[Rfam]
RNA: THF (Tetrahydrofolate) riboswitch aptamer
Organism: Natranaerobius trueperi
RNA sequence: GGCAGAGUAGGUAUCAUGCGUAAAGUGCUAAGAGAUGGGAUGUUGCUCUUAGACGAAGGGAAGUCACCUGCGAUAUGAUAUCGCAUCCGCUGUC
Numbered sequence: 001g002g003c004a005g006a007g008u009a010g011g012u013a014u015c016a017u018g019c020g021u022a023a024a025g026u027g028c029u030a031a032g033a034g035a036u037g038g039g040a041u042g043u044u045g046c047u048c049u050u051a052g053a054c055g056a057a058g059g060g061a062a063g064u065c066a067c068c069u070g071c072g073a074u075a076u077g078a079u080a081u082c083g084c085a086u087c088c089g090c091u092g093u094c
Stems, first nucleotide, its partner, number of pairs: 001094005010082009019072003025054002028052007038088005058069003